[Rfam]
RNA sequence: CCAUUGCCGGAGGCGGGUCGGCUGGACUUAUCCAGCUGGUUCACCAUCGGCGCCGGCGGGGGCGACAUAUAUCACAGCGUGUCGCGAGCCCGACCCCGCUUCUUACUCUUUGGCCUACUCCUACUUCUUGUAGGGGUAGGCAUCUUUUUACUCCCCGCUCGAUAGAGCGGCACACUUA
Number, nucleotide and partner (000 for none) at each position: 001c000002c000003a000004u000005u000006g051007c050008c049009g048010g047011a000012g045013g044014c000015g000016g041017g040018u039019c038020g037021g036022c035023u034024g033025g032026a031027c000028u000029u000030a000031u026032c025033c024034a023035g022036c021037u020038g019039g018040u017041u016042c000043a000044c013045c012046a000047u010048c009049g008050g007051c006052g000053c000054c000055g100056g099057c098058g097059g096060g095061g094062g085063c084064g083065a082066c081067a080068u000069a000070u000071a000072u000073c000074a000075c000076a000077g000078c000079g000080u067081g066082u065083c064084g063085c062086g000087a000088g000089c000090c000091c000092g000093a000094c061095c060096c059097c058098g057099c056100u055101u000102c000103u000104u000105a000106c000107u000108c000109u000110u000111u000112g000113g141114c140115c139116u138117a137118c136119u135120c134121c133122u132123a131124c130125u000126u000127c000128u000129u000130g124131u123132a122133g121134g120135g119136g118137u117138a116139g115140g114141c113142a000143u000144c000145u000146u000147u000148u000149u000150a000151c000152u000153c000154c000155c170156c169157g168158c000159u166160c000161g000162a000163u000164a000165g000166a159167g000168c157169g156170g155171c000172a000173c000174a000175c000176u000177u000178a000
Rfam assigns this 178-nucleotide sequence to the family "Hepatitis C virus (HCV) cis-acting replication element (CRE)".
On this family, see Romero-Lopez and Berzal-Herranz, Int J Mol Sci 2020: "The Role of the RNA-RNA Interactome in the Hepatitis C Virus Life Cycle".
The sequence is in the family's curated seed alignment.
Pairs were carried over by alignment from the consensus structure, which was predicted with RNAfold.
Rfam classes the family as a cis-regulatory element.